[Rfam]
RNA sequence: UUUGGGGUAGGAACUCGCGCGUUAAGUGCCAGCGGAACGGAAUGUGAACGCUGGACGAAAAGCACAGCUUGCGAUGCUUGUUCCGCAUUCGCCACU
Numbered sequence: 001u002u003u004g005g006g007g008u009a010g011g012a013a014c015u016c017g018c019g020c021g022u023u024a025a026g027u028g029c030c031a032g033c034g035g036a037a038c039g040g041a042a043u044g045u046g047a048a049c050g051c052u053g054g055a056c057g058a059a060a061a062g063c064a065c066a067g068c069u070u071g072c073g074a075u076g077c078u079u080g081u082u083c084c085g086c087a088u089u090c091g092c093c094a095c096u
Base pairs, nucleotide, nucleotide: 003094004093005092010084011083012082013081014080017077018076019075020073021072022071026056027055029054030053031052032051033050034049040090041089042088043087044086060070061069062068063067

Shown here is a 96-nucleotide RNA from Fructilactobacillus florum, a member of the family "THF (Tetrahydrofolate) riboswitch aptamer". Rfam's curators write: Tetrahydrofolate (THF) riboswitch was first reported for Ames et al. as an RNA motif in 5' untranslated (5'-UTR)regions of folate transport and biosynthesis genes in Firmicutes genomes. Rfam links the family to the GO term tetrahydrofolate metabolic process.